[Rfam]
RNA sequence: AGUAGGGGCCCUCGCGAGGGGGAGCCGUGAACCUGGUCAGGCCGUAACAGGAGCAGCCAUAAGCGAGGUACUCUUGUGCGGGGGCCUCUUCUUCG
Numbered sequence: 001a002g003u004a005g006g007g008g009c010c011c012u013c014g015c016g017a018g019g020g021g022g023a024g025c026c027g028u029g030a031a032c033c034u035g036g037u038c039a040g041g042c043c044g045u046a047a048c049a050g051g052a053g054c055a056g057c058c059a060u061a062a063g064c065g066a067g068g069u070a071c072u073c074u075u076g077u078g079c080g081g082g083g084g085c086c087u088c089u090u091c092u093u094c095g
Stems, first nucleotide, its partner, number of pairs: 004089011015076001017075005026065003034059004042051002
RNA: Bacterial small signal recognition particle RNA